This 68-nucleotide RNA sequence from Bos taurus belongs to the Rfam family "mir-2432 microRNA precursor family". The sequence is in the family's curated seed alignment.
[Rfam]
RNA sequence: GACCUCUAAGUCUAGAACCCCUCUGAUUCAGGAUUCUCUGAGUCAGGAUUCUAGGCUUAGAGGUCAUA
Numbered sequence: 001g002a003c004c005u006c007u008a009a010g011u012c013u014a015g016a017a018c019c020c021c022u023c024u025g026a027u028u029c030a031g032g033a034u035u036c037u038c039u040g041a042g043u044c045a046g047g048a049u050u051c052u053a054g055g056c057u058u059a060g061a062g063g064u065c066a067u068a
Stems, first nucleotide, its partner, number of pairs: 001065017021047001023046010